Source information: This 161-nucleotide RNA from Microbispora triticiradicis belongs to the Rfam family "c-di-AMP riboswitch aptamer (ydaO/yuaA leader)". NCBI's taxonomy places the organism under Bacteria, Bacillati, Actinomycetes, Streptosporangiales, Microbispora.
Nucleotides: 161
Stems, first nucleotide, its partner, number of pairs: 011146004018040007041141006051075001076126003084101004104120004
Number, partner (000 for none) and nucleotide at each position: 001000g002000c003000c004000g005000a006000c007000g008000a009000c010000c011146u012145g013144c014143c015000g016000a017000g018040u019039c020038c021037g022036u023035g024034c025000a026000g027000u028000c029000a030000g031000g032000a033000g034024g035023c036022a037021c038020g039019g040018a041141g042140c043139c044138g045137g046136g047000g048000a049000a050000c051075c052000a053000u054000c055000g056000a057000c058000c059000u060000u061000c062000c063000u064000c065000c066000c067000g068000a069000a070000g071000g072000u073000c074000c075051g076126g077125g078124g079000u080000g081000a082000a083000u084101c085100g086099g087098c088000g089000c090000g091000u092000c093000c094000a095000c096000g097000c098087g099086c100085c101084g102000u103000a104120g105119g106118g107117c108000g109000a110000c111000u112000u113000c114000c115000c116000c117107g118106c119105c120104c121000g122000a123000a124078c125077c126076c127000g128000u129000c130000a131000g132000c133000u134000a135000a136046c137045c138044c139043g140042g141041u142000a143014g144013g145012c146011g147000u148000a149000c150000g151000c152000g153000g154000a155000a156000g157000a158000u159000c160000c161000a